[Rfam]
RNA sequence: UGCUGUGAUGGUGUAAUUUGCGUCUUACUCCAUGUACAGCGACGGUUGCCUACUGUCUCAUGCUUGCGUGGCAGGUUGACGAAAACAAAGUCUGAGCA
Numbered sequence: 001u002g003c004u005g006u007g008a009u010g011g012u013g014u015a016a017u018u019u020g021c022g023u024c025u026u027a028c029u030c031c032a033u034g035u036a037c038a039g040c041g042a043c044g045g046u047u048g049c050c051u052a053c054u055g056u057c058u059c060a061u062g063c064u065u066g067c068g069u070g071g072c073a074g075g076u077u078g079a080c081g082a083a084a085a086c087a088a089a090g091u092c093u094g095a096g097c098a
Stems, first nucleotide, its partner, number of pairs: 001098003021081004030071005039063002041057005